[Rfam]
RNA: leuA-Halobacteria RNA
RNA sequence: GACACCCGAGGAUAGAGGAAGUCGCACUGAAGCGGCUGGUCGAGAAAUUCUCC
Dot-bracket structure: ...................((((((......))))))................